[Rfam]
RNA: MIR2118 microRNA precursor family
RNA sequence: CACAGGAAAAUGAAGAAAUGAGGGCCUAAGAGCAGUGGGCAUGGGGAUAUGGAGGAAAGCUCAACCGAUGAUAUCUCUUGGAGGUGGCAUCUGCUUCAAGCUUUCCCUGAUGCCUCCCAUGCCUAUUGUUCUUUGGUACUCCUUCCUUUUCCUUUUGGUU
Numbered sequence: 001c002a003c004a005g006g007a008a009a010a011u012g013a014a015g016a017a018a019u020g021a022g023g024g025c026c027u028a029a030g031a032g033c034a035g036u037g038g039g040c041a042u043g044g045g046g047a048u049a050u051g052g053a054g055g056a057a058a059g060c061u062c063a064a065c066c067g068a069u070g071a072u073a074u075c076u077c078u079u080g081g082a083g084g085u086g087g088c089a090u091c092u093g094c095u096u097c098a099a100g101c102u103u104u105c106c107c108u109g110a111u112g113c114c115u116c117c118c119a120u121g122c123c124u125a126u127u128g129u130u131c132u133u134u135g136g137u138a139c140u141c142c143u144u145c146c147u148u149u150u151c152c153u154u155u156u157g158g159u160u
Stems, first nucleotide, its partner, number of pairs: 010150001012148002015145003020141003025136002028133007036125011048112003052107001054106007
Dot-bracket structure: .........(.((.(((..(((..((.(((((((.(((((((((((.(((.(.(((((((.......................................))))))))..)))..))))))))))).))))))).))..))).))).)).)..........